RNA sequence: GAAUCAAAACAAUUUAACGGAAGCAAUGCCACAGUUGGCUGAUCUGUCAUCAAACAGUUGCUAAUUGCCAGUAUUUCAACAAGAUUGAGAUGCUAGCUUCCAAGAUCAAGUUAUGUUUUUUGGACAGGAUAGGAAGUCCGUUGUCUGUGUGCUCUUAACGAGAGUGAUGGACUUGGGAUGUCGAAAGAUAGUCUACAUUU
Numbered sequence: 001g002a003a004u005c006a007a008a009a010c011a012a013u014u015u016a017a018c019g020g021a022a023g024c025a026a027u028g029c030c031a032c033a034g035u036u037g038g039c040u041g042a043u044c045u046g047u048c049a050u051c052a053a054a055c056a057g058u059u060g061c062u063a064a065u066u067g068c069c070a071g072u073a074u075u076u077c078a079a080c081a082a083g084a085u086u087g088a089g090a091u092g093c094u095a096g097c098u099u100c101c102a103a104g105a106u107c108a109a110g111u112u113a114u115g116u117u118u119u120u121u122g123g124a125c126a127g128g129a130u131a132g133g134a135a136g137u138c139c140g141u142u143g144u145c146u147g148u149g150u151g152c153u154c155u156u157a158a159c160g161a162g163a164g165u166g167a168u169g170g171a172c173u174u175g176g177g178a179u180g181u182c183g184a185a186a187g188a189u190a191g192u193c194u195a196c197a198u199u200u
Stems, first nucleotide, its partner, number of pairs: 019077004033066007041058001044057004109192001111190001119188002136179004143172004149168002151165006
RNA: Small nucleolar RNA snR34